Shown here is a 78-nucleotide sequence from Xenopus laevis, a member of the family "Small nucleolar RNA SNORD53/SNORD92". The family's RNA type in Rfam is C/D-box small nucleolar RNA.

[Rfam]
RNA sequence: CUGCUGUGAUGAGUUGCCUCUGGUUUCGCUUGUGUCCGACAACCUGUGAUGACGCAUCUCUCUUGGCUGUCUGAGCAG
Numbered sequence: 001c002u003g004c005u006g007u008g009a010u011g012a013g014u015u016g017c018c019u020c021u022g023g024u025u026u027c028g029c030u031u032g033u034g035u036c037c038g039a040c041a042a043c044c045u046g047u048g049a050u051g052a053c054g055c056a057u058c059u060c061u062c063u064u065g066g067c068u069g070u071c072u073g074a075g076c077a078g
Stems, first nucleotide, its partner, number of pairs: 001078004
The match comes from Rfam's covariance-model search (77 bits). Gene Ontology terms of the family: nucleolus and RNA processing. The base pairs follow the family's consensus structure.